Annotation:
A member of the RNA family "Bacterial RNase P class B" from Brevibacillus borstelensis, 386 nucleotides long. Clan: RNaseP clan. NCBI's taxonomy places the organism under Bacteria, Bacillati, Bacillota, Caryophanales, Brevibacillus borstelensis.
[Rfam]
RNA sequence: GAAUGCGGGUAGUCGCUGCCGCGGCCUUUAUGGUCGGCGGUAGAGGAAAGUCCAGGCUCGCCCAGACUGAGAUGUCUGGAGUGUUCGUACCUGGUGCAAACCAGGGCAGCGAGGCAUUUGCUUCGCUGACGGCGUGGAAAGGGUUCUCUUCCAGAGACCCGAGUACGCUGAAAGUGCCACAGAAACGUAGCUUCCCUGGCGACAGGGGAGAUGGAACGCGGUAAACCCUGCGAGCGAGAAACCCAAAUUUGGUAGGGGAACCGUCCCGAAGGAACUGAACGGAGGGACGGAUGGCAUCUCGGAUGCCAUAGAUAGAUGACUACCGCUCUUGGUGCGAGGAGCAGAUCCGUUUGCAGCACGGGAGAGACAGAACCUGGCUUACAGCA
Numbered sequence: 001g002a003a004u005g006c007g008g009g010u011a012g013u014c015g016c017u018g019c020c021g022c023g024g025c026c027u028u029u030a031u032g033g034u035c036g037g038c039g040g041u042a043g044a045g046g047a048a049a050g051u052c053c054a055g056g057c058u059c060g061c062c063c064a065g066a067c068u069g070a071g072a073u074g075u076c077u078g079g080a081g082u083g084u085u086c087g088u089a090c091c092u093g094g095u096g097c098a099a100a101c102c103a104g105g106g107c108a109g110c111g112a113g114g115c116a117u118u119u120g121c122u123u124c125g126c127u128g129a130c131g132g133c134g135u136g137g138a139a140a141g142g143g144u145u146c147u148c149u150u151c152c153a154g155a156g157a158c159c160c161g162a163g164u165a166c167g168c169u170g171a172a173a174g175u176g177c178c179a180c181a182g183a184a185a186c187g188u189a190g191c192u193u194c195c196c197u198g199g200c201g202a203c204a205g206g207g208g209a210g211a212u213g214g215a216a217c218g219c220g221g222u223a224a225a226c227c228c229u230g231c232g233a234g235c236g237a238g239a240a241a242c243c244c245a246a247a248u249u250u251g252g253u254a255g256g257g258g259a260a261c262c263g264u265c266c267c268g269a270a271g272g273a274a275c276u277g278a279a280c281g282g283a284g285g286g287a288c289g290g291a292u293g294g295c296a297u298c299u300c301g302g303a304u305g306c307c308a309u310a311g312a313u314a315g316a317u318g319a320c321u322a323c324c325g326c327u328c329u330u331g332g333u334g335c336g337a338g339g340a341g342c343a344g345a346u347c348c349g350u351u352u353g354c355a356g357c358a359c360g361g362g363a364g365a366g367a368c369a370g371a372a373c374c375u376g377g378c379u380u381a382c383a384g385c386a
Stems, first nucleotide, its partner, number of pairs: 004386003007382001008324007016043006048380003052377005057238005062079006085233005090105006106130001107128009131228002134168003141160004146156003174226002176222003191210008242257003261290007291309006326364006333358003